Rfam assigns this 132-nucleotide RNA from Ramphastos sulfuratus to the family "Small nucleolar RNA SNORA3/SNORA45 family". The members of this family belong to the H/ACA class of snoRNAs which are thought to guide the sites of modification of uridines to pseudouridines. Gene Ontology terms of the family: RNA processing and nucleolus. Lineage of the source: Eukaryota > Amniota > Telluraves > Piciformes > Ramphastos. Its Rfam clan is "SNORA3 clan". For this family Rfam cites "RNomics: an experimental approach that identifies 201 candidates for novel, small, non-messenger RNAs in mouse" (Huttenhofer et al., EMBO J, 2001). It scores 107 bits against the family's covariance model.
[Rfam]
RNA sequence: GCCGAGACUAGAGUCACAUCUGGACGUUGUCUGUUGUCCUGGUGUGCUAGAGUACUCGAAGAGUAACCACUAAUCUAUAUUCACUGGCUGUGACCCCGUUUGACUCAGUCAGUCACCAGGUUAGUGACAAGA
Numbered sequence: 001g002c003c004g005a006g007a008c009u010a011g012a013g014u015c016a017c018a019u020c021u022g023g024a025c026g027u028u029g030u031c032u033g034u035u036g037u038c039c040u041g042g043u044g045u046g047c048u049a050g051a052g053u054a055c056u057c058g059a060a061g062a063g064u065a066a067c068c069a070c071u072a073a074u075c076u077a078u079a080u081u082c083a084c085u086g087g088c089u090g091u092g093a094c095c096c097c098g099u100u101u102g103a104c105u106c107a108g109u110c111a112g113u114c115a116c117c118a119g120g121u122u123a124g125u126g127a128c129a130a131g132a
Stems, first nucleotide, its partner, number of pairs: 003058004007053003012048002015046006023038004070124007083113005089107002092104001094102001